[Rfam]
This 80-nucleotide RNA sequence from Yersinia bercovieri belongs to the Rfam family "sroB RNA". Rfam's curators put it in the seed alignment.
RNA sequence: GCAAGGAGUGUGGGCGCUAACUAACUAAAAUAAUGAAAAUUCCUCUUUGACUGGCCGAUAGUGAUAUCGGCCAUUUUUUU
Numbered sequence: 001g002c003a004a005g006g007a008g009u010g011u012g013g014g015c016g017c018u019a020a021c022u023a024a025c026u027a028a029a030a031u032a033a034u035g036a037a038a039a040u041u042c043c044u045c046u047u048u049g050a051c052u053g054g055c056c057g058a059u060a061g062u063g064a065u066a067u068c069g070g071c072c073a074u075u076u077u078u079u080u
Stems, first nucleotide, its partner, number of pairs: 007018004026032002052073009
By type it is a small RNA. A reference for the family is Vogel et al. (2003), "RNomics in Escherichia coli detects new sRNA species and indicates parallel transcriptional output in bacteria", Nucleic Acids Res.